[Rfam]
RNA sequence: UUUAUCGUGAGAUAAGCAGGGAAGAAAGCGGGACUACAAAAUCCGGUACUGACGAACAGAAAGUACAUAAGAGGCCCAUUAGUGCGGGUAAGCAAGCACCUCUUUGCAAAGCCCCUGACCAACAAGUACUAGUGGGUAGAUGUUCCAGGAAUCGGAGGAAGGAAUAUGCUC
Numbered sequence: 001u002u003u004a005u006c007g008u009g010a011g012a013u014a015a016g017c018a019g020g021g022a023a024g025a026a027a028g029c030g031g032g033a034c035u036a037c038a039a040a041a042u043c044c045g046g047u048a049c050u051g052a053c054g055a056a057c058a059g060a061a062a063g064u065a066c067a068u069a070a071g072a073g074g075c076c077c078a079u080u081a082g083u084g085c086g087g088g089u090a091a092g093c094a095a096g097c098a099c100c101u102c103u104u105u106g107c108a109a110a111g112c113c114c115c116u117g118a119c120c121a122a123c124a125a126g127u128a129c130u131a132g133u134g135g136g137u138a139g140a141u142g143u144u145c146c147a148g149g150a151a152u153c154g155g156a157g158g159a160a161g162g163a164a165u166a167u168g169c170u171c
Base pairs, nucleotide, nucleotide: 001016002015003014004013005012006011028171030169032167037162042156043155044154045153046152047150049148050147051146063145065143066142067141068140074137075136076135078133079132080131081130082129083128084127086114087113088112089111092107093106094105095104

Shown here is a 171-nucleotide RNA from Adhaeribacter pallidiroseus, a member of the family "Group II catalytic intron D1-D4-3". Rfam 15.1 lists 4,274 matches to the family in 1,585 species.